[Rfam]
RNA sequence: UAUCUUUGCCGCCUGGACAGAAAACCUGUCCGAUACAUAAAAAUCAUUUAAAUAAUAUUGGAAUG
Number, nucleotide and partner (000 for none) at each position: 001u000002a000003u000004c000005u000006u000007u000008g000009c000010c000011g000012c000013c000014u032015g031016g030017a029018c028019a027020g000021a000022a000023a000024a000025c000026c000027u019028g018029u017030c016031c015032g014033a000034u000035a000036c000037a000038u000039a000040a000041a000042a000043a000044u000045c000046a000047u000048u000049u000050a000051a000052a000053u000054a000055a000056u000057a000058u000059u000060g000061g000062a000063a000064u000065g000

Shown here is a 65-nucleotide RNA from Christiangramia fulva, a member of the family "S15-Flavobacteria ribosomal protein leader". Pairs were carried over by alignment from the consensus structure, which is taken from published work. Taxonomically the source falls in Christiangramia (Bacteria, Bacteroidota, Flavobacteriia, Flavobacteriales). By type it is a cis-regulatory leader. Its Rfam clan is "Ribosomal Protein S15 Leader clan".